[Rfam]
RNA sequence: UCUUCAUUUCCCGUGCUCUCUCACCGGUCAGAGCUGUGAGAUAGUGUAGGAAAUGAAGAGA
Numbered sequence: 001u002c003u004u005c006a007u008u009u010c011c012c013g014u015g016c017u018c019u020c021u022c023a024c025c026g027g028u029c030a031g032a033g034c035u036g037u038g039a040g041a042u043a044g045u046g047u048a049g050g051a052a053a054u055g056a057a058g059a060g061a
Stems, first nucleotide, its partner, number of pairs: 001059007010050001013047005019041004
Dot-bracket structure: (((((((..(..(((((.((((...............)))).)))))..)..)))))))..

Shown here is a 61-nucleotide RNA from Pristionchus pacificus, a member of the family "mir-8364 microRNA precursor family".
Its family is annotated with RISC complex and miRNA-mediated post-transcriptional gene silencing in the Gene Ontology.
The sequence is in the family's curated seed alignment.
Rfam 15.1 lists 3,320 matches to the family in 2 species.